Source information: Shown here is a 196-nucleotide sequence from Artemisia annua, a member of the family "Early nodulin 40". Its family is annotated with nodulation in the Gene Ontology. For this family Rfam cites "Identification of conserved secondary structures and expansion segments in enod40 RNAs reveals new enod40 homologues in plants" (Gultyaev and Roussis, Nucleic Acids Res, 2007). The source organism's lineage runs through Eukaryota, Spermatophyta, campanulids, Asterales and Artemisia.
RNA sequence: AUGAAUAUGCAUUGGCAUGUAUCUUGAAAAGUAGGGCUUAUAUGGAGUGCAAGAAGAUGAGUUACUCUUUGUUAUGCCAUCUCUUCUCAUCCAUAUUUCAAAUAGUUUGAUUUUGACAUUAGCCGUUUUUCGGAUAAUGUCAAAACAAACCGGCAAGUCACGAAACGGCGAAUUGAAGGAGACUCUUUUGAGUUCC
Numbered sequence: 001a002u003g004a005a006u007a008u009g010c011a012u013u014g015g016c017a018u019g020u021a022u023c024u025u026g027a028a029a030a031g032u033a034g035g036g037c038u039u040a041u042a043u044g045g046a047g048u049g050c051a052a053g054a055a056g057a058u059g060a061g062u063u064a065c066u067c068u069u070u071g072u073u074a075u076g077c078c079a080u081c082u083c084u085u086c087u088c089a090u091c092c093a094u095a096u097u098u099c100a101a102a103u104a105g106u107u108u109g110a111u112u113u114u115g116a117c118a119u120u121a122g123c124c125g126u127u128u129u130u131c132g133g134a135u136a137a138u139g140u141c142a143a144a145a146c147a148a149a150c151c152g153g154c155a156a157g158u159c160a161c162g163a164a165a166c167g168g169c170g171a172a173u174u175g176a177a178g179g180a181g182a183c184u185c186u187u188u189u190g191a192g193u194u195c196c
Stems, first nucleotide, its partner, number of pairs: 049091001105150005124139004181194005
Dot-bracket structure: ................................................(.........................................).............(((((..............((((........))))......)))))..............................(((((....)))))..